[Rfam]
RNA: Glycine riboswitch aptamer
Organism: Virgibacillus salexigens
RNA sequence: CUCUGGAGAGUGUUUACGUAAGAAGUAAACCACCCAAGAAGAAAAUACAAAUUACCUAUGGCGAUUUGUAUGAAACUUUCUGGUAGAAGGACAGAG
Number, nucleotide and partner (000 for none) at each position: 001c096002u095003c094004u093005g092006g000007a000008g000009a000010g000011u000012g030013u029014u028015u027016a000017c000018g000019u000020a000021a000022g000023a000024a000025g000026u000027a015028a014029a013030c012031c000032a084033c083034c082035c000036a079037a000038g000039a078040a077041g076042a000043a000044a000045a071046u070047a069048c068049a067050a066051a065052u064053u063054a000055c000056c000057u000058a000059u000060g000061g000062c000063g053064a052065u051066u050067u049068g048069u047070a046071u045072g000073a000074a000075a000076c041077u040078u039079u036080c000081u000082g034083g033084u032085a000086g000087a000088a000089g000090g000091a000092c005093a004094g003095a002096g001